[Rfam]
RNA sequence: AACACCAUCUCUUCGGUUAUCUGGCUAUUUGAAACUAUUUCAAAUAGCCAGAUAACCGAAGAGAUGGUGUU
Number, nucleotide and partner (000 for none) at each position: 001a071002a070003c069004a068005c067006c000007a065008u064009c063010u062011c061012u060013u059014c058015g057016g056017u055018u054019a053020u052021c051022u050023g049024g048025c047026u046027a000028u044029u043030u042031g041032a040033a039034a000035c000036u000037a000038u000039u033040u032041c031042a030043a029044a028045u000046a026047g025048c024049c023050a022051g021052a020053u019054a018055a017056c016057c015058g014059a013060a012061g011062a010063g009064a008065u007066g000067g005068u004069g003070u002071u001
Rfam assigns this 71-nucleotide sequence from Octopus sinensis to the family "mir-9/mir-79 microRNA precursor family". It scores 60 bits against the family's covariance model. Taxonomically the source falls in Octopus (Eukaryota, Eumetazoa, Lophotrochozoa, Coleoidea). For this family Rfam cites "Identification of novel genes coding for small expressed RNAs" (Lagos-Quintana et al., Science, 2001). Pairs were carried over by alignment from the consensus structure, which was predicted with RNAalifold.